RNA sequence: GGUGAACGGUGUGCACGGUGUCGAUCUGUGUCAUGUGCUGUUGCCUGACUGCGUUUUGCAGGCUGGGCAGCAGUGCUCACUCCACACCCGCAGCCAUAGAGCAACAGGAGGUCAUAGUACUGGUCCUUGACGUCUUAAAUGACAUUUCUCCAUUGGCCAGCCUCCAAAUUCUCCUACACGC
Numbered sequence: 001g002g003u004g005a006a007c008g009g010u011g012u013g014c015a016c017g018g019u020g021u022c023g024a025u026c027u028g029u030g031u032c033a034u035g036u037g038c039u040g041u042u043g044c045c046u047g048a049c050u051g052c053g054u055u056u057u058g059c060a061g062g063c064u065g066g067g068c069a070g071c072a073g074u075g076c077u078c079a080c081u082c083c084a085c086a087c088c089c090g091c092a093g094c095c096a097u098a099g100a101g102c103a104a105c106a107g108g109a110g111g112u113c114a115u116a117g118u119a120c121u122g123g124u125c126c127u128u129g130a131c132g133u134c135u136u137a138a139a140u141g142a143c144a145u146u147u148c149u150c151c152a153u154u155g156g157c158c159a160g161c162c163u164c165c166a167a168a169u170u171c172u173c174c175u176a177c178a179c180g181c
Stems, first nucleotide, its partner, number of pairs: 013091002029084002034079002036075006043068002045065001047063001050060003107174005120160006127152001129146002132143003
Rfam assigns this 181-nucleotide RNA from Notothenia coriiceps to the family "Small nucleolar RNA SNORA23". From the family's description: The members of this family belong to the H/ACA class of snoRNAs which are thought to guide the sites of modification of uridines to pseudouridines. This family includes human snoRNA ACA23 (SNORA23) and mouse snoMBI-1. ACA23 is predicted to guide the pseudouridylation of residue U3737 and U4331 of 28S rRNA. Taxonomically the source falls in Notothenia (Eukaryota, Neoteleostei, Eurypterygia, Eupercaria). It scores 96 bits against the family's covariance model.